[Rfam]
RNA sequence: UCAAUCCUUCAGGGCAGGGUGCAAUUCCCUACCGGCGGUGAUGUUGUUGUAGAGUGCUUAUUUAUUAAGUUUAUCUACCACACUUAGUCCGCUACCCGGCUCGCGUUGUUGACGCGAACGGUGGACCCGGUGAAAUUCCGGGACCGACAGUAUAGUCUGGAUGGAAGAAGGAGAGG
Numbered sequence: 001u002c003a004a005u006c007c008u009u010c011a012g013g014g015c016a017g018g019g020u021g022c023a024a025u026u027c028c029c030u031a032c033c034g035g036c037g038g039u040g041a042u043g044u045u046g047u048u049g050u051a052g053a054g055u056g057c058u059u060a061u062u063u064a065u066u067a068a069g070u071u072u073a074u075c076u077a078c079c080a081c082a083c084u085u086a087g088u089c090c091g092c093u094a095c096c097c098g099g100c101u102c103g104c105g106u107u108g109u110u111g112a113c114g115c116g117a118a119c120g121g122u123g124g125a126c127c128c129g130g131u132g133a134a135a136u137u138c139c140g141g142g143a144c145c146g147a148c149a150g151u152a153u154a155g156u157c158u159g160g161a162u163g164g165a166a167g168a169a170g171g172a173g174a175g176g
Stems, first nucleotide, its partner, number of pairs: 005172006017029003031156002033146002035092004096121002126142005148159003

This 176-nucleotide RNA sequence from Paenibacillus sp. FSL H7-0737 belongs to the Rfam family "FMN riboswitch aptamer (RFN element)".